A member of the RNA family "Makes More Granules Regulator RNA (mmgR)" from Insolitispirillum peregrinum, 77 nucleotides long. It scores 57 bits against the family's covariance model. The family is grouped with related families in Rfam's "suhB sRNA clan". Lineage of the source: Bacteria > Alphaproteobacteria > Rhodospirillales > Novispirillaceae > Insolitispirillum. Rfam describes the family as follows. SuhB later renamed mmgR (makes more granules regulator) was a putative non-coding RNA found multiple times in the Agrobacterium tumefaciens genome and related alpha-proteobacteria. Other non-coding RNAs uncovered in the same analysis include: speF, ybhL, metA, and serC.Several studies inSinorhizobium meliloti showed that suhB element is indeed a non-coding RNA:firstly it was detected on Northern blot and called Sm8RNA, secondly in an RNAseq study referred to as SmelC689.The mutant phenotype's (strain lacking the small RNA) cytoplasm contains higher content of polyhydroxybutyrate (PBH)storage granules than wild type strain. The sRNA is required to limit the PBH intracellular accumulation when the nitrogen-fixing Sinorhizobium meliloti is under condition of surplus carbon in relation to nitrogen. It has been renamed to mmgR. Further study confirmed that mmgR fine-tunes the regulation of PBH storage.Northern blot confirmed the expression of the sRNA in other rhizobia species. It is annotated as a small RNA.

RNA sequence: GUUGUCUGCCUUUCUUGGACGUUUCCUCCCUAAACUUUCAGGGGCCGCCAUCUGUGCGGCCCUCUUUUUUCAUAUAC
Numbered sequence: 001g002u003u004g005u006c007u008g009c010c011u012u013u014c015u016u017g018g019a020c021g022u023u024u025c026c027u028c029c030c031u032a033a034a035c036u037u038u039c040a041g042g043g044g045c046c047g048c049c050a051u052c053u054g055u056g057c058g059g060c061c062c063u064c065u066u067u068u069u070u071c072a073u074a075u076a077c
Base pairs, nucleotide, nucleotide: 008020010018011017042062043061044060045059046058047057048056

The pairing is the family consensus, mapped onto this sequence.